RNA sequence: UGGGUCGACCAGGCGGUCGCGCGUCACGGAAGUGGCUCGAGGAACGUCCGGGCUCCGAAGAGCAGGGUGGUGGGUAACGCCCACUCGGGGUAACCCGCAGGCCAGUGCCACAGAGAACAGACCGCCUGCGCGUCGUGAUGUUUGCAUCGCGGGGCAGCAGGUAAGGGUGAAACGGUGGUGUAAGAGACCACCAGCUCCCCGGGUGACCGGGGAGGCUAGGUAAACCCCACCCGGAGCAAGGCCAGACAGGACACGUUUGAGGGCUGCUCGCCCGAGUGUCCGGGUAGGCUGCUGGAGGGCGUCGGCAACGGCGUUCGUAGAUGGAUGGCCGCUACUCCCUUGCUGGUAACGGCAGGGGAUGACAGAACCCGGCGUAUCGGUCGACCCAUCCA
Number, nucleotide and partner (000 for none) at each position: 001u388002g387003g386004g385005u384006c383007g382008a381009c380010c379011a377012g333013g332014c331015g330016g329017u328018c327019g000020c039021g038022c000023g036024u035025c034026a033027c032028g000029g000030a000031a000032g027033u026034g025035g024036c023037u000038c021039g020040a000041g000042g000043a000044a375045c374046g373047u000048c372049c371050g370051g369052g368053c236054u235055c234056c233057g000058a000059a000060g269061a268062g267063c266064a000065g232066g231067g230068u229069g228070g084071u083072g082073g081074g080075u000076a000077a000078c000079g000080c074081c073082c072083a071084c070085u099086c097087g096088g095089g094090g000091u000092a000093a000094c089095c088096c087097g086098c000099a085100g227101g226102c000103c000104a000105g225106u224107g221108c220109c219110a000111c000112a000113g000114a000115g000116a000117a000118c000119a000120g000121a000122c166123c165124g162125c161126c160127u159128g158129c157130g155131c154132g000133u000134c000135g000136u000137g000138a000139u000140g000141u000142u000143u000144g000145c000146a000147u000148c000149g000150c000151g000152g000153g000154g131155c130156a000157g129158c128159a127160g126161g125162u124163a000164a000165g123166g122167g000168u000169g000170a000171a000172a000173c000174g192175g191176u190177g189178g188179u187180g000181u000182a000183a000184g000185a000186g000187a179188c178189c177190a176191c175192c174193a000194g216195c214196u213197c212198c211199c210200c209201g208202g207203g000204u000205g000206a000207c202208c201209g200210g199211g198212g197213a196214g195215g000216c194217u000218a000219g109220g108221u107222a000223a000224a106225c105226c101227c100228c069229a068230c067231c066232c065233g056234g055235a054236g053237c000238a000239a000240g290241g289242c288243c287244a000245g000246a000247c000248a000249g281250g280251a279252c278253a277254c276255g000256u000257u000258u000259g000260a000261g273262g272263g271264c270265u000266g063267c062268u061269c060270g264271c263272c262273c261274g000275a000276g254277u253278g252279u251280c250281c249282g000283g000284g000285u000286a000287g243288g242289c241290u240291g000292c000293u000294g000295g000296a000297g316298g315299g314300c313301g312302u311303c310304g309305g000306c000307a000308a000309c304310g303311g302312c301313g300314u299315u298316c297317g000318u000319a000320g000321a000322u000323g000324g000325a000326u000327g018328g017329c016330c015331g014332c013333u012334a000335c000336u000337c000338c000339c000340u000341u000342g000343c000344u000345g000346g000347u000348a000349a000350c000351g000352g000353c000354a000355g000356g000357g000358g000359a000360u000361g000362a000363c000364a000365g000366a000367a000368c052369c051370c050371g049372g048373c046374g045375u044376a000377u011378c000379g010380g009381u008382c007383g006384a005385c004386c003387c002388a001389u000390c000391c000392a000